terC RNA: a 55-nucleotide RNA from Mesorhizobium sp. L-8-10. The base pairs follow the family's consensus structure, which is taken from published work. Rfam classes the family as a cis-regulatory element. It scores 57 bits against the family's covariance model.

[Rfam]
RNA sequence: UCACCAGGCCGGGCCCCUCUGGCAGUUCGCUGAACUGUGAUGUCGGACUGGAUGU
Dot-bracket structure: .....((.((((.........((((((.....))))))....)))).))......